RNA sequence: CUGCGUGACGAAGCGCGUGCUAAAGUGGACAAUAAAGGCUGAAGCUACGCGUGAGUCGCCAAAAACGCCGGGUGAUCCGGCGUUUUUUA
Numbered sequence: 001c002u003g004c005g006u007g008a009c010g011a012a013g014c015g016c017g018u019g020c021u022a023a024a025g026u027g028g029a030c031a032a033u034a035a036a037g038g039c040u041g042a043a044g045c046u047a048c049g050c051g052u053g054a055g056u057c058g059c060c061a062a063a064a065a066c067g068c069c070g071g072g073u074g075a076u077c078c079g080g081c082g083u084u085u086u087u088u089a
Stems, first nucleotide, its partner, number of pairs: 015060001016058002019039003064084008
Rfam assigns this 89-nucleotide RNA from Pluralibacter gergoviae to the family "sroD RNA". A reference for the family is Vogel et al. (2003), "RNomics in Escherichia coli detects new sRNA species and indicates parallel transcriptional output in bacteria", Nucleic Acids Res. The family's RNA type in Rfam is small RNA. NCBI's taxonomy places the organism under Bacteria, Pseudomonadati, Pseudomonadota, Gammaproteobacteria, Pluralibacter. This family consists of a number of bacterial sroD RNA genes of around 90 bases in length. sroD is found in several Enterobacterial species but its function is unknown. The family's consensus secondary structure was predicted with PFOLD.